[Rfam]
RNA: Mu-gpT-DE RNA
RNA sequence: CCCUGACAGUCGCCUGAUGCGGCUGACAUUUGCCACGACAGGAGACUCACAUG
Numbered sequence: 001c002c003c004u005g006a007c008a009g010u011c012g013c014c015u016g017a018u019g020c021g022g023c024u025g026a027c028a029u030u031u032g033c034c035a036c037g038a039c040a041g042g043a044g045a046c047u048c049a050c051a052u053g
Stems, first nucleotide, its partner, number of pairs: 002042004007025005